[Rfam]
RNA sequence: UUGAAUGUGAAUUGAUUUAUGUUUAGAUACACUUUACUAAAAGUAAUUCUUAUGAGUCGAUGUUAUUUGGAUAG
Numbered sequence: 001u002u003g004a005a006u007g008u009g010a011a012u013u014g015a016u017u018u019a020u021g022u023u024u025a026g027a028u029a030c031a032c033u034u035u036a037c038u039a040a041a042a043g044u045a046a047u048u049c050u051u052a053u054g055a056g057u058c059g060a061u062g063u064u065a066u067u068u069g070g071a072u073a074g
Stems, first nucleotide, its partner, number of pairs: 011061008021053002026048003031044004
A member of the RNA family "MIR5272 microRNA precursor family" from Medicago truncatula, 74 nucleotides long. Pairs were carried over by alignment from the consensus structure, which was predicted with RNAalifold. A search with the family's covariance model found it, with a score of 81 bits.